Shown here is a 170-nucleotide sequence from Neptunicella marina, a member of the family "Manganese Mn2+ riboswitch aptamer (yybP-ykoY)".
[Rfam]
RNA sequence: CCACAUUAGGGGAGUAGCUUUCUCUUUCGAGAAAAUACGUCAACAUACUUGAGCCCUCAUUGGCUUAUGGCGUAUUUGUACCGCUUCGGUAUUAGCAAGACCUAAGGUAAUACUCAGCCUGUUUGCGGGACGCUGAGUUUUGCCUUAUGUCAGCUUGUCCCGCCGGAGUU
Dot-bracket structure: .....................(((....))).((((((((((.......(((((........)))))))))))))))(...(...................................................................................)..).
Numbered sequence: 001c002c003a004c005a006u007u008a009g010g011g012g013a014g015u016a017g018c019u020u021u022c023u024c025u026u027u028c029g030a031g032a033a034a035a036u037a038c039g040u041c042a043a044c045a046u047a048c049u050u051g052a053g054c055c056c057u058c059a060u061u062g063g064c065u066u067a068u069g070g071c072g073u074a075u076u077u078g079u080a081c082c083g084c085u086u087c088g089g090u091a092u093u094a095g096c097a098a099g100a101c102c103u104a105a106g107g108u109a110a111u112a113c114u115c116a117g118c119c120u121g122u123u124u125g126c127g128g129g130a131c132g133c134u135g136a137g138u139u140u141u142g143c144c145u146u147a148u149g150u151c152a153g154c155u156u157g158u159c160c161c162g163c164c165g166g167a168g169u170u
Stems, first nucleotide, its partner, number of pairs: 022031003033077010050067005078169001082166001
Rfam's curators write: This RNA was originally discovered in E. coli during a large scale screen and was named SraF. The family was later found to exist upstream of related families of protein genes in many bacteria, including the the yybP and ykoK genes in B. subtilis. The pairing is the family consensus, mapped onto this sequence.